[Rfam]
RNA: tRNA
Organism: Allomyces macrogynus
RNA sequence: GGGGCUAUGGCGCAAUGGUAGCGCGUCUGACUCCAGAUCAGAAGGUUGGGAGUUCGAGUCUCUCUGGCCUCA
Numbered sequence: 001g002g003g004g005c006u007a008u009g010g011c012g013c014a015a016u017g018g019u020a021g022c023g024c025g026u027c028u029g030a031c032u033c034c035a036g037a038u039c040a041g042a043a044g045g046u047u048g049g050g051a052g053u054u055c056g057a058g059u060c061u062c063u064c065u066g067g068c069c070u071c072a
Stems, first nucleotide, its partner, number of pairs: 001071007010024004026042005048064005